[Rfam]
RNA sequence: CCACAAACGGGAGGCCGUGAUCCGCCGGACGUACCACUUCGGCCACCGCGGUCCGGCGGGGAGCCACUGGUGAGACCGGCCCGCGGGCCG
Numbered sequence: 001c002c003a004c005a006a007a008c009g010g011g012a013g014g015c016c017g018u019g020a021u022c023c024g025c026c027g028g029a030c031g032u033a034c035c036a037c038u039u040c041g042g043c044c045a046c047c048g049c050g051g052u053c054c055g056g057c058g059g060g061g062a063g064c065c066a067c068u069g070g071u072g073a074g075a076c077c078g079g080c081c082c083g084c085g086g087g088c089c090g
Base pairs, nucleotide, nucleotide: 001090004087008083009082010081011080013065014064015063022059023058024057025056026055027054028053029052041077042076044072045071046070047069
RNA: c-di-GMP-II-GAG riboswitch aptamer